Description: Rfam assigns this 64-nucleotide RNA sequence from Colobanthus apetalus to the family "Plastid-psbA-4 3UTR RNA". Pairs were carried over by alignment from the consensus structure, which was predicted with LocARNA. On this family, see Richter et al., Plant Commun 2023: "Retrograde signaling in plants: A critical review focusing on the GUN pathway and beyond". Rfam describes the family as follows. Plastid psbA-4 is a non-coding RNA (ncRNA) present in plastids. It was identified in inverted repeat sequences in the 3 prime untranslate region (3UTR) of photosystem II quinone-binding protein (psbA).
RNA sequence: GAAAGUAAAGGGACAAUUAAAGAAUUUCUUGUUCUAUCAAGAAAUUCUUUAUUGCCCCUUUACU
Numbered sequence: 001g002a003a004a005g006u007a008a009a010g011g012g013a014c015a016a017u018u019a020a021a022g023a024a025u026u027u028c029u030u031g032u033u034c035u036a037u038c039a040a041g042a043a044a045u046u047c048u049u050u051a052u053u054g055c056c057c058c059u060u061u062a063c064u
Stems, first nucleotide, its partner, number of pairs: 007061006014054004019050001023046002026043006